[Rfam]
Shown here is a 114-nucleotide RNA sequence from Oryza meridionalis, a member of the family "mir-393 microRNA precursor family". The base pairs follow the family's consensus structure. For this family Rfam cites "Role of microRNAs and other sRNAs of plants in their changing environments" (Kruszka et al., J Plant Physiol, 2012). The match comes from Rfam's covariance-model search (79 bits).
RNA sequence: UGGGGAAGCAUCCAAAGGGAUCGCAUUGAUCCUUCAUCGCUCUCGCUCGCUUCCAUGGCGGUCGUCGUCUACAAGCAGCUUGAUGGAUCAUGCGAUCCUUUUGGAGGCUUCCUC
Numbered sequence: 001u002g003g004g005g006a007a008g009c010a011u012c013c014a015a016a017g018g019g020a021u022c023g024c025a026u027u028g029a030u031c032c033u034u035c036a037u038c039g040c041u042c043u044c045g046c047u048c049g050c051u052u053c054c055a056u057g058g059c060g061g062u063c064g065u066c067g068u069c070u071a072c073a074a075g076c077a078g079c080u081u082g083a084u085g086g087a088u089c090a091u092g093c094g095a096u097c098c099u100u101u102u103g104g105a106g107g108c109u110u111c112c113u114c
Base pairs, nucleotide, nucleotide: 002114003113004112005111006110008108009107011105012104013103014102015101016100017099018098019097020096021095023093024092025091026090028089029088030087031086032085